Betaproteobacteria toxic small RNA: a 60-nucleotide sequence from Paraburkholderia acidiphila. The family has 51 seed sequences and 951 matches in Rfam 15.1. Rfam describes the family as follows. Overexpression in amino aid rich medium attenuates growth, suggesting role in repressing amino acid intake and metabolism. The match comes from Rfam's covariance-model search (54 bits). For this family Rfam cites "A vast collection of microbial genes that are toxic to bacteria" (Kimelman et al., Genome Res, 2012). Taxonomically the source falls in Paraburkholderia (Bacteria, Pseudomonadota, Betaproteobacteria, Burkholderiales).
RNA sequence: UGUCUCCUCCAUGUCUCCCUUGGCAUGGUUCAAGCCCGCACUCGUUGCGGGCUUUUCUUU
Dot-bracket structure: ........(((((((......)))))))....((((((((.....)))))))).......